[Rfam]
RNA sequence: UUUUCCGUGUUGAGUCUUGUUAGAACAAGGAUAUUUACGGAAUUACCAGUUUUGUCUGUCCGAUCAUCAACGCAGCAAUGGCGUAAGACGUAUUGAUCUUUCAGACAGUUAGCGGGCUGCGGGUUGCAGUCCUUACCGGUAAAAGGAAUCUUCUCUGGUGAUAAGUUCCCAGGCUGUUUUCCCCUGUUAAUUGCGCUGCGUUUCCAGUUGAAACCCAGGCAACCGACACUCUGCGCCUCUUAAGCGAGCGACAACCGUGAGGUUGGCGACGUGAACAGUCACGAGGCCAUCGGUUUACCCCCGGCAAGGCAUUACUCUGCCCGCAGCUUAGUCGUCAA
Numbered sequence: 001u002u003u004u005c006c007g008u009g010u011u012g013a014g015u016c017u018u019g020u021u022a023g024a025a026c027a028a029g030g031a032u033a034u035u036u037a038c039g040g041a042a043u044u045a046c047c048a049g050u051u052u053u054g055u056c057u058g059u060c061c062g063a064u065c066a067u068c069a070a071c072g073c074a075g076c077a078a079u080g081g082c083g084u085a086a087g088a089c090g091u092a093u094u095g096a097u098c099u100u101u102c103a104g105a106c107a108g109u110u111a112g113c114g115g116g117c118u119g120c121g122g123g124u125u126g127c128a129g130u131c132c133u134u135a136c137c138g139g140u141a142a143a144a145g146g147a148a149u150c151u152u153c154u155c156u157g158g159u160g161a162u163a164a165g166u167u168c169c170c171a172g173g174c175u176g177u178u179u180u181c182c183c184c185u186g187u188u189a190a191u192u193g194c195g196c197u198g199c200g201u202u203u204c205c206a207g208u209u210g211a212a213a214c215c216c217a218g219g220c221a222a223c224c225g226a227c228a229c230u231c232u233g234c235g236c237c238u239c240u241u242a243a244g245c246g247a248g249c250g251a252c253a254a255c256c257g258u259g260a261g262g263u264u265g266g267c268g269a270c271g272u273g274a275a276c277a278g279u280c281a282c283g284a285g286g287c288c289a290u291c292g293g294u295u296u297a298c299c300c301c302c303g304g305c306a307a308g309g310c311a312u313u314a315c316u317c318u319g320c321c322c323g324c325a326g327c328u329u330a331g332u333c334g335u336c337a338a
Stems, first nucleotide, its partner, number of pairs: 003042006014032005052108007063097004070091003075082002114329011133307002136304004145182004154173005192221003196218003201213004222294005235287005249268002252265005
RNA: RNase E 5' UTR element